RNA: TPP riboswitch aptamer (THI element)
Organism: Bacillus sp. SJS
RNA sequence: AACCUUCACUGGGGGUGCCGAUGCGGCUGAGAGAAGCGAUUCGCUUUAACCCUUACUACCUGAUCCGGAUAAUGCCGGCGAAGGGAAGUGGUAUGCAAUUGCU
Numbered sequence: 001a002a003c004c005u006u007c008a009c010u011g012g013g014g015g016u017g018c019c020g021a022u023g024c025g026g027c028u029g030a031g032a033g034a035a036g037c038g039a040u041u042c043g044c045u046u047u048a049a050c051c052c053u054u055a056c057u058a059c060c061u062g063a064u065c066c067g068g069a070u071a072a073u074g075c076c077g078g079c080g081a082a083g084g085g086a087a088g089u090g091g092u093a094u095g096c097a098a099u100u101g102c103u
Base pairs, nucleotide, nucleotide: 006091007090008089009088010087011053012052013051014050017027018026019025020024034046035045036044037043038042059084060083061082065078066077067076068075